[Rfam]
The family of this 133-nucleotide RNA sequence from Chinchilla lanigera is "Small nucleolar RNA SNORA1".
Gene Ontology terms of the family: RNA processing and nucleolus.
Rfam's curators write: ACA1 is a member of the H/ACA class of snoRNA that guide the sites of modification of uridines to pseudouridines.
The match comes from Rfam's covariance-model search (110 bits).
The family has 29 seed sequences and 1,282 matches in Rfam 15.1.
It is annotated as an H/ACA-box small nucleolar RNA.
RNA sequence: AGCCUCACCCUAGAUAAGAGUGGGCACUGUUGACUGGUGUCCAAAAUUGGUCAGUGUGGCUACACUGAGACACAGGCGAUGCCUCUGUCAUAGUGAGUGUGUCCCUGUGGUGACAAUGACACCUGCAACACUU
Numbered sequence: 001a002g003c004c005u006c007a008c009c010c011u012a013g014a015u016a017a018g019a020g021u022g023g024g025c026a027c028u029g030u031u032g033a034c035u036g037g038u039g040u041c042c043a044a045a046a047u048u049g050g051u052c053a054g055u056g057u058g059g060c061u062a063c064a065c066u067g068a069g070a071c072a073c074a075g076g077c078g079a080u081g082c083c084u085c086u087g088u089c090a091u092a093g094u095g096a097g098u099g100u101g102u103c104c105c106u107g108u109g110g111u112g113a114c115a116a117u118g119a120c121a122c123c124u125g126c127a128a129c130a131c132u133u
Stems, first nucleotide, its partner, number of pairs: 002060003006056003021043007073125004086112006